[Rfam]
RNA sequence: AUAAAGUUUGGGCAAACUUAUCGAAAGAUAAGGACGCAAAGCCAUGGGUCUAAAGAAUUUUCAAUGAUUGCCAGGUUGCUAUC
Numbered sequence: 001a002u003a004a005a006g007u008u009u010g011g012g013c014a015a016a017c018u019u020a021u022c023g024a025a026a027g028a029u030a031a032g033g034a035c036g037c038a039a040a041g042c043c044a045u046g047g048g049u050c051u052a053a054a055g056a057a058u059u060u061u062c063a064a065u066g067a068u069u070g071c072c073a074g075g076u077u078g079c080u081a082u083c
Stems, first nucleotide, its partner, number of pairs: 012037002017032006040077004045073003048068003055062002